[Rfam]
RNA sequence: CCCCGUGCGGCUGAUGACAGCACUGCUGCUGAGACUCCAUGAUGGCUCAGUCUCAAAGUAAACGCACUGACGCACUCUGG
Numbered sequence: 001c002c003c004c005g006u007g008c009g010g011c012u013g014a015u016g017a018c019a020g021c022a023c024u025g026c027u028g029c030u031g032a033g034a035c036u037c038c039a040u041g042a043u044g045g046c047u048c049a050g051u052c053u054c055a056a057a058g059u060a061a062a063c064g065c066a067c068u069g070a071c072g073c074a075c076u077c078u079g080g
Stems, first nucleotide, its partner, number of pairs: 005075005010021004029050005